[Rfam]
Nucleotides: 076
Stems, first nucleotide, its partner, number of pairs: 001076002003073002
Number, partner (000 for none) and nucleotide at each position: 001076a002075c003073u004072c005000c006000a007000u008000g009000a010000u011000g012000a013000a014000c015000g016000a017000a018000c019000g020000u021000a022000g023000a024000a025000u026000g027000a028000c029000a030000a031000g032000c033000a034000u035000a036000u037000g038000g039000c040000u041000g042000a043000a044000c045000a046000a047000g048000g049000a050000a051000g052000u053000g054000a055000u056000g057000c058000c059000a060000c061000a062000u063000u064000c065000c066000u067000a068000c069000u070000g071000a072004g073003a074000a075002g076001u